[Rfam]
RNA sequence: GACUUAGUGAGGAGUGAUUCGCAAACAAAAGUCCUAGGGUCGAAACACGGCAAGACUCCUAGGGCUUUUUAUUU
Number, nucleotide and partner (000 for none) at each position: 001g000002a000003c000004u000005u000006a000007g000008u000009g000010a000011g000012g000013a000014g000015u000016g000017a000018u000019u000020c000021g000022c000023a000024a000025a000026c000027a069028a068029a067030a066031g065032u000033c000034c062035u061036a060037g059038g058039g056040u055041c054042g000043a000044a000045a000046c000047a000048c000049g000050g000051c000052a000053a000054g041055a040056c039057u000058c038059c037060u036061a035062g034063g000064g000065c031066u030067u029068u028069u027070u000071a000072u000073u000074u000
Background
Rfam assigns this 74-nucleotide RNA sequence from Thermosynechococcus vestitus to the family "Cyano-1 RNA". The family's consensus secondary structure is taken from published work.